[Rfam]
RNA: c-di-GMP-I riboswitch aptamer
RNA sequence: UAAAUAGAUUGGUAAACCCAGUGAAAGCUGGGGGCACAAAGCUUCAGGUCUAAAGCAGGAUGCUAUGACAGCUGGGCCGCAACA
Number, nucleotide and partner (000 for none) at each position: 001u000002a000003a000004a000005u000006a000007g000008a000009u000010u000011g000012g037013u036014a000015a000016a000017c032018c031019c030020a029021g028022u027023g000024a000025a000026a000027g022028c021029u020030g019031g018032g017033g000034g000035c000036a013037c012038a000039a000040a000041g077042c076043u075044u000045c074046a073047g072048g069049u068050c067051u000052a000053a000054a000055g063056c062057a061058g000059g000060a000061u057062g056063c055064u000065a000066u000067g050068a049069c048070a000071g000072c047073u046074g045075g043076g042077c041078c000079g000080c000081a000082a000083c000084a000